RNA: mir-589 microRNA precursor family
Organism: Microcebus murinus
RNA sequence: AGCCUGUGCCCAGCAGCCGCUGAGAACCACGUCUGCUCUGAGUUGGGUACUGCCUGUUCAGAACAAACUCCAGUUUCUAAAACGUGGCCAAAUGGCC
Numbered sequence: 001a002g003c004c005u006g007u008g009c010c011c012a013g014c015a016g017c018c019g020c021u022g023a024g025a026a027c028c029a030c031g032u033c034u035g036c037u038c039u040g041a042g043u044u045g046g047g048u049a050c051u052g053c054c055u056g057u058u059c060a061g062a063a064c065a066a067a068c069u070c071c072a073g074u075u076u077c078u079a080a081a082a083c084g085u086g087g088c089c090a091a092a093u094g095g096c097c
Stems, first nucleotide, its partner, number of pairs: 002096003007091001013088002016085002021079002024076004031068002034065002037062007045054002